[Rfam]
RNA sequence: AAUAGGAGAAUGACAAAUUAGAUUUUUCCUCCUAAUUUUUAGCAUUUUUGGUUGGAUUUAAAUUUUUUCAAGGCUGAAAAUCAGGAAGGAAAAAUCUGAUUUGUCAUUCUCCUAUU
Numbered sequence: 001a002a003u004a005g006g007a008g009a010a011u012g013a014c015a016a017a018u019u020a021g022a023u024u025u026u027u028c029c030u031c032c033u034a035a036u037u038u039u040u041a042g043c044a045u046u047u048u049u050g051g052u053u054g055g056a057u058u059u060a061a062a063u064u065u066u067u068u069c070a071a072g073g074c075u076g077a078a079a080a081u082c083a084g085g086a087a088g089g090a091a092a093a094a095u096c097u098g099a100u101u102u103g104u105c106a107u108u109c110u111c112c113u114a115u116u
Stems, first nucleotide, its partner, number of pairs: 001116022023093005030086004035081005041075002045071002
RNA: MIR7504 microRNA precursor family
Organism: Gossypium aridum